[Rfam]
RNA sequence: CCCUGACAGUUGCAUGGUGCGACUGACAUUCGCCACGACAGGAGAUUCUCAUG
Numbered sequence: 001c002c003c004u005g006a007c008a009g010u011u012g013c014a015u016g017g018u019g020c021g022a023c024u025g026a027c028a029u030u031c032g033c034c035a036c037g038a039c040a041g042g043a044g045a046u047u048c049u050c051a052u053g
Stems, first nucleotide, its partner, number of pairs: 002042004007025005
RNA: Mu-gpT-DE RNA